[Rfam]
RNA sequence: UCUUGAGGACGACCUCAAGCCACAUGUCCAUUCUUUGGGGACGACCCCA
Numbered sequence: 001u002c003u004u005g006a007g008g009a010c011g012a013c014c015u016c017a018a019g020c021c022a023c024a025u026g027u028c029c030a031u032u033c034u035u036u037g038g039g040g041a042c043g044a045c046c047c048c049a
Stems, first nucleotide, its partner, number of pairs: 002019007036049005